[Rfam]
Rfam assigns this 139-nucleotide RNA sequence from Cohnella sp. AR92 to the family "Group II catalytic intron D1-D4-4". Its family is annotated with Group II intron splicing in the Gene Ontology. A reference for the family is Bonen and Vogel (2001), "The ins and outs of group II introns", Trends Genet. Rfam's curators write: Group II introns are found in rRNA, tRNA and mRNA of organelles in fungi, plants and protists, and also in mRNA in bacteria. The source organism's lineage runs through Bacteria, Bacillati, Bacilli, Paenibacillaceae and Cohnella.
RNA sequence: UCGUCGGUGAAAGUCAGACCAAGGUAAGAGCCAAGUCGCCUUGUAGAUGACAGGCAACUGGUGGAGAAAUCCUAAGGUUGAAGCCCUGUGACAAAGCAUUCCUUCCGGAGUGCAAGCAAAGGAACAGACCGUAACAUCA
Numbered sequence: 001u002c003g004u005c006g007g008u009g010a011a012a013g014u015c016a017g018a019c020c021a022a023g024g025u026a027a028g029a030g031c032c033a034a035g036u037c038g039c040c041u042u043g044u045a046g047a048u049g050a051c052a053g054g055c056a057a058c059u060g061g062u063g064g065a066g067a068a069a070u071c072c073u074a075a076g077g078u079u080g081a082a083g084c085c086c087u088g089u090g091a092c093a094a095a096g097c098a099u100u101c102c103u104u105c106c107g108g109a110g111u112g113c114a115a116g117c118a119a120a121g122g123a124a125c126a127g128a129c130c131g132u133a134a135c136a137u138c139a
Base pairs, nucleotide, nucleotide: 020043021042022041023040024039050089051088052087053086054085055080056079057078058077059076064071065070096113097112098111099110100109101108116132117131